[Rfam]
RNA sequence: CCUUCGCUGAUGAGGAACUGUUUGACUUUCGUUCUUCUGAGCUUGCUGAAGCUGUUGUUGUUAACCAUCUGAGGAGG
Number, nucleotide and partner (000 for none) at each position: 001c077002c076003u075004u000005c073006g000007c000008u000009g000010a000011u000012g000013a000014g000015g000016a000017a000018c000019u000020g000021u000022u000023u000024g000025a000026c000027u000028u000029u000030c000031g000032u000033u000034c000035u000036u000037c000038u000039g000040a000041g000042c000043u000044u000045g000046c000047u000048g000049a000050a000051g000052c000053u000054g000055u000056u000057g000058u000059u000060g000061u000062u000063a000064a000065c000066c000067a000068u000069c000070u000071g000072a000073g005074g000075a003076g002077g001

Small nucleolar RNA SNORD59: a 77-nucleotide sequence from Crotophaga sulcirostris.
The source organism's lineage runs through Eukaryota, Metazoa, Euteleostomi, Dipnotetrapodomorpha and Crotophaga.
It is annotated as a C/D-box small nucleolar RNA.
The literature on the family includes a 2002 paper in Mol Cell Biol by Galardi et al., "Purified box C/D snoRNPs are able to reproduce site-specific 2'-O-methylation of target RNA in vitro".